[Rfam]
RNA sequence: AAGCGAAGGACCCAGCAGUGAAGCAAAAUGCUCAUGAAAUGAGGCUUCUCUAACAAUUUUAAUUAACCUUCGCAGAUUUAGUCUCCAAGAGAUCAUCGAUGAUCUGUUUUUCUCCGCGGAUCGUCACGAGUUCUUGGUGUAUAAUU
Numbered sequence: 001a002a003g004c005g006a007a008g009g010a011c012c013c014a015g016c017a018g019u020g021a022a023g024c025a026a027a028a029u030g031c032u033c034a035u036g037a038a039a040u041g042a043g044g045c046u047u048c049u050c051u052a053a054c055a056a057u058u059u060u061a062a063u064u065a066a067c068c069u070u071c072g073c074a075g076a077u078u079u080a081g082u083c084u085c086c087a088a089g090a091g092a093u094c095a096u097c098g099a100u101g102a103u104c105u106g107u108u109u110u111u112c113u114c115c116g117c118g119g120a121u122c123g124u125c126a127c128g129a130g131u132u133c134u135u136g137g138u139g140u141a142u143a144a145u146u
Base pairs, nucleotide, nucleotide: 003073004072005071006070007069008068009067011020013018026049031043032042033041034040035039085137086136087135088134089133090132098125099124101122102121103120104119105118106117107116
Dot-bracket structure: ..(((((((.(.(....).).....(....(((((...))))).....).................)))))))...........((((((.......((.(((((((........))))))).))......)))))).........